[Rfam]
RNA sequence: UUUAUGGCUGAUGCAGCAUCAUCAAGAUUCUCACUUCAAAAGACUUAUGGCAUGGCAGAGAGCAUAUAUAGACUGCAUCAGAUUCCACCCAUCUGCAUUUGAAUGUGAAUCUUGAUGAUGCUACAUCCGCAAAUAA
Numbered sequence: 001u002u003u004a005u006g007g008c009u010g011a012u013g014c015a016g017c018a019u020c021a022u023c024a025a026g027a028u029u030c031u032c033a034c035u036u037c038a039a040a041a042g043a044c045u046u047a048u049g050g051c052a053u054g055g056c057a058g059a060g061a062g063c064a065u066a067u068a069u070a071g072a073c074u075g076c077a078u079c080a081g082a083u084u085c086c087a088c089c090c091a092u093c094u095g096c097a098u099u100u101g102a103a104u105g106u107g108a109a110u111c112u113u114g115a116u117g118a119u120g121c122u123a124c125a126u127c128c129g130c131a132a133a134u135a136a
Stems, first nucleotide, its partner, number of pairs: 010127004015122016032105002
RNA: mir-172 microRNA precursor family